Shown here is an 82-nucleotide RNA from Flavonifractor sp. An52, a member of the family "ZMP/ZTP riboswitch aptamer (pfl RNA motif)".
A search with the family's covariance model found it, with a score of 59 bits.
Rfam links the family to the GO terms regulation of purine nucleotide biosynthetic process and one-carbon metabolic process.
The source organism's lineage runs through Bacteria, Bacillati, Eubacteriales, Oscillospiraceae and Flavonifractor.

RNA sequence: AUAAUAUCAUAUGACUGACGGAUAAUGUGGAGCCUACCACAUGGAGUAUGAUAGUAAAAAGCCGACCGUCUGGGCGAGAGAA
Numbered sequence: 001a002u003a004a005u006a007u008c009a010u011a012u013g014a015c016u017g018a019c020g021g022a023u024a025a026u027g028u029g030g031a032g033c034c035u036a037c038c039a040c041a042u043g044g045a046g047u048a049u050g051a052u053a054g055u056a057a058a059a060a061g062c063c064g065a066c067c068g069u070c071u072g073g074g075c076g077a078g079a080g081a082a
Stems, first nucleotide, its partner, number of pairs: 003055001005053008015043001017070005027040004061075003
Dot-bracket structure: ..(.((((((((..(.[[[[[.....((((......))))..)..)))))))).).....(((..]]]]]..))).......